[Rfam]
RNA sequence: GCCAAAUGAUGUAGAUUCAGAUCCGUGAAUCUUUGAUAAUGACGACUUUCAUCUAUCACCCUAUAACUGAUGGCU
Dot-bracket structure: ((((........................(.(...).).................................)))).